[Rfam]
RNA sequence: GGUCACAAGUUUGAGGCUAUAGCAGAUCCACUUAUGGCAUAGCCCUGUUAGAUUCUAGUGAAUCUACAAGUUCUGCU
Numbered sequence: 001g002g003u004c005a006c007a008a009g010u011u012u013g014a015g016g017c018u019a020u021a022g023c024a025g026a027u028c029c030a031c032u033u034a035u036g037g038c039a040u041a042g043c044c045c046u047g048u049u050a051g052a053u054u055c056u057a058g059u060g061a062a063u064c065u066a067c068a069a070g071u072u073c074u075g076c077u
Stems, first nucleotide, its partner, number of pairs: 013045001015044004021077006049066007